RNA: mir-7 microRNA precursor family
RNA sequence: GAGUGUAUUCCGUAUGGAAGACUAGUGAUUUUGUUGUUUGGUCUCUGCUAAUAACAAUAAAUCCCUUGUCUUCUUACGGCGUGCAUCU
Numbered sequence: 001g002a003g004u005g006u007a008u009u010c011c012g013u014a015u016g017g018a019a020g021a022c023u024a025g026u027g028a029u030u031u032u033g034u035u036g037u038u039u040g041g042u043c044u045c046u047g048c049u050a051a052u053a054a055c056a057a058u059a060a061a062u063c064c065c066u067u068g069u070c071u072u073c074u075u076a077c078g079g080c081g082u083g084c085a086u087c088u
Stems, first nucleotide, its partner, number of pairs: 003086006010079005016073002019071004025065001027063005033058006